[Rfam]
RNA sequence: UUACCAGUCAGGCUCUGGCCAUAUUCCAGGACAGAGUGGGUCCUGGGUAUGACUAAAGCCCGACUGAACA
Numbered sequence: 001u002u003a004c005c006a007g008u009c010a011g012g013c014u015c016u017g018g019c020c021a022u023a024u025u026c027c028a029g030g031a032c033a034g035a036g037u038g039g040g041u042c043c044u045g046g047g048u049a050u051g052a053c054u055a056a057a058g059c060c061c062g063a064c065u066g067a068a069c070a
Stems, first nucleotide, its partner, number of pairs: 007064003011060004016055003020051004026040002029037001
Annotation:
Rfam assigns this 70-nucleotide RNA sequence from Neotoma lepida to the family "mir-344 microRNA precursor family". The literature on the family includes a 2010 paper in Genes Dev by Chiang et al., "Mammalian microRNAs: experimental evaluation of novel and previously annotated genes".